A member of the RNA family "Bacillaceae-1 RNA" from Lederbergia galactosidilytica, 70 nucleotides long. Pairs were carried over by alignment from the consensus structure, which is taken from published work. It is annotated as a small RNA. The family has 95 seed sequences and 5,721 matches in Rfam 15.1.

[Rfam]
RNA sequence: GUGUAAGGAUUUAAUGCUAAUAUCGCCACAUCCUGUGGCGGCAACUCCUGAGUAACCGACAUUCUGUAGG
Numbered sequence: 001g002u003g004u005a006a007g008g009a010u011u012u013a014a015u016g017c018u019a020a021u022a023u024c025g026c027c028a029c030a031u032c033c034u035g036u037g038g039c040g041g042c043a044a045c046u047c048c049u050g051a052g053u054a055a056c057c058g059a060c061a062u063u064c065u066g067u068a069g070g
Base pairs, nucleotide, nucleotide: 011052012051014049016047025039026038027037028036029035056070057069059067060066